[Rfam]
RNA sequence: CUUGACCGAACCCAGCCACAGAGGCCGGUUCUCCGGGCGGUCUUGCCCGUACGUAGCCAGCAGCGCACCGGCCUC
Number, nucleotide and partner (000 for none) at each position: 001c000002u000003u000004g000005a000006c000007c000008g000009a000010a000011c000012c000013c000014a000015g025016c024017c023018a000019c000020a000021g000022a000023g017024g016025c015026c000027g000028g000029u000030u000031c071032u070033c000034c000035g000036g000037g000038c065039g064040g000041u000042c000043u060044u059045g058046c000047c056048c000049g054050u000051a000052c000053g000054u049055a000056g047057c000058c045059a044060g043061c000062a000063g000064c039065g038066c000067a000068c000069c000070g032071g031072c000073c000074u000075c000
The family of this 75-nucleotide RNA sequence from Paractinoplanes abujensis is "ASpks TB sRNA".
The match comes from Rfam's covariance-model search (69 bits).
The family's RNA type in Rfam is antisense RNA.
Lineage of the source: Bacteria > Bacillati > Actinomycetes > Micromonosporaceae > Paractinoplanes.